[Rfam]
RNA sequence: UUAACUUGUCCUAAGUCAAACUCAUCUAAAUUUGACCAAGUUUAUAGAAAAAUAUAUUAACAUCUGCAGCAUCAAAUAAAUGCACUAUAUAAAUAUAUUACAUGAUCUAUCUAGUGAAACUAGUUUGAUGUUUUAGAUAUUUAUGUAUUUUCUAUAAAUUUUGUCAAACCUAAAGAAGUUUGACGUAGGACAAGCUAAA
Numbered sequence: 001u002u003a004a005c006u007u008g009u010c011c012u013a014a015g016u017c018a019a020a021c022u023c024a025u026c027u028a029a030a031u032u033u034g035a036c037c038a039a040g041u042u043u044a045u046a047g048a049a050a051a052a053u054a055u056a057u058u059a060a061c062a063u064c065u066g067c068a069g070c071a072u073c074a075a076a077u078a079a080a081u082g083c084a085c086u087a088u089a090u091a092a093a094u095a096u097a098u099u100a101c102a103u104g105a106u107c108u109a110u111c112u113a114g115u116g117a118a119a120c121u122a123g124u125u126u127g128a129u130g131u132u133u134u135a136g137a138u139a140u141u142u143a144u145g146u147a148u149u150u151u152c153u154a155u156a157a158a159u160u161u162u163g164u165c166a167a168a169c170c171u172a173a174a175g176a177a178g179u180u181u182g183a184c185g186u187a188g189g190a191c192a193a194g195c196u197a198a199a
Stems, first nucleotide, its partner, number of pairs: 005194005011188003015184008025174001031168005045154007055145003059141002062138005068132001072128006
RNA: MIR1435 microRNA precursor family
Organism: Panicum miliaceum